[Rfam]
RNA: U12 minor spliceosomal RNA
RNA sequence: AUGCCUUAAACUAAUGAGUAAGGAAAAUAAUGAGCCUGGGUAGCUACAGGCUCCCUAGCAUUAUCUAGGAAGAAUUUCUGCAAGGGUACAGGUCGCCCCCUGGUGACCCGCUUACUUUGCGGGAUGCCUGGGUUGCAGUGAUCUGCCUG
Numbered sequence: 001a002u003g004c005c006u007u008a009a010a011c012u013a014a015u016g017a018g019u020a021a022g023g024a025a026a027a028u029a030a031u032g033a034g035c036c037u038g039g040g041u042a043g044c045u046a047c048a049g050g051c052u053c054c055c056u057a058g059c060a061u062u063a064u065c066u067a068g069g070a071a072g073a074a075u076u077u078c079u080g081c082a083a084g085g086g087u088a089c090a091g092g093u094c095g096c097c098c099c100c101u102g103g104u105g106a107c108c109c110g111c112u113u114a115c116u117u118u119g120c121g122g123g124a125u126g127c128c129u130g131g132g133u134u135g136c137a138g139u140g141a142u143c144u145g146c147c148u149g
Base pairs, nucleotide, nucleotide: 004023005022006021007020008019032053033052034051035050036049037048038047054069055068056067057066058065084148085147086146087145090144091143092142093141094140095139096138099132100131102128103127104126105125107123108122109121110120111119